[Rfam]
RNA sequence: AAGUGAAAAUAUGAAAGGGCUGAUGGAUGAAUGAUGAUUAACUAAUCUAUAUUCUAUUAAAAACGAAUACGUUCGUACUUUAAAAUAUAGGAUUAGUCUAUUCAUUUUUUUAUAAGUCAGUUGAUGCCUUAUUAAAUAUGAGUGUAUGACUAAUCCUUCCAAUUAAAAAUGGGGAGGAUUUUUGA
Numbered sequence: 001a002a003g004u005g006a007a008a009a010u011a012u013g014a015a016a017g018g019g020c021u022g023a024u025g026g027a028u029g030a031a032u033g034a035u036g037a038u039u040a041a042c043u044a045a046u047c048u049a050u051a052u053u054c055u056a057u058u059a060a061a062a063a064c065g066a067a068u069a070c071g072u073u074c075g076u077a078c079u080u081u082a083a084a085a086u087a088u089a090g091g092a093u094u095a096g097u098c099u100a101u102u103c104a105u106u107u108u109u110u111u112a113u114a115a116g117u118c119a120g121u122u123g124a125u126g127c128c129u130u131a132u133u134a135a136a137u138a139u140g141a142g143u144g145u146a147u148g149a150c151u152a153a154u155c156c157u158u159c160c161a162a163u164u165a166a167a168a169a170u171g172g173g174g175a176g177g178a179u180u181u182u183u184g185a
Stems, first nucleotide, its partner, number of pairs: 016109003024104004031097002043095006049088005058077002062073004120132002152180009162170001